[Rfam]
RNA: mir-8/mir-141/mir-200 microRNA precursor family
RNA sequence: CCAUCUUACUGGGCAGCAUUGGAUGGUGUCUGGUCUCUAAUACUGCCUGGUAAUGAUGA
Numbered sequence: 001c002c003a004u005c006u007u008a009c010u011g012g013g014c015a016g017c018a019u020u021g022g023a024u025g026g027u028g029u030c031u032g033g034u035c036u037c038u039a040a041u042a043c044u045g046c047c048u049g050g051u052a053a054u055g056a057u058g059a
Stems, first nucleotide, its partner, number of pairs: 002058004006053011018041006